[Rfam]
Background: This 130-nucleotide RNA sequence from Streptomyces fructofermentans belongs to the Rfam family "Streptomyces RNA 5676". The pairing is the family consensus, mapped onto this sequence. The match comes from Rfam's covariance-model search (130 bits). From the family's description: Identified by deep sequencing of transcriptome at the end of exponential growth phase. Appears longer on northern blot than sequencing transcript. This indicates processing step. Streptomyces specific.
RNA sequence: AGAUGAGAGAUACACCCCGCCCACAGGGGACUGUGGGCGACUCCGGGUCGGAGCUUCCCCGGCUACGCCCUGGUCGUGCCAUCGCGCACACAACCGGAGCCUCUGGUUCCGGGUCUCCUCACCGAUCGGA
Numbered sequence: 001a002g003a004u005g006a007g008a009g010a011u012a013c014a015c016c017c018c019g020c021c022c023a024c025a026g027g028g029g030a031c032u033g034u035g036g037g038c039g040a041c042u043c044c045g046g047g048u049c050g051g052a053g054c055u056u057c058c059c060c061g062g063c064u065a066c067g068c069c070c071u072g073g074u075c076g077u078g079c080c081a082u083c084g085c086g087c088a089c090a091c092a093a094c095c096g097g098a099g100c101c102u103c104u105g106g107u108u109c110c111g112g113g114u115c116u117c118c119u120c121a122c123c124g125a126u127c128g129g130a
Stems, first nucleotide, its partner, number of pairs: 004121004009117002018039009043073005049067002052064003076089004094112008122129002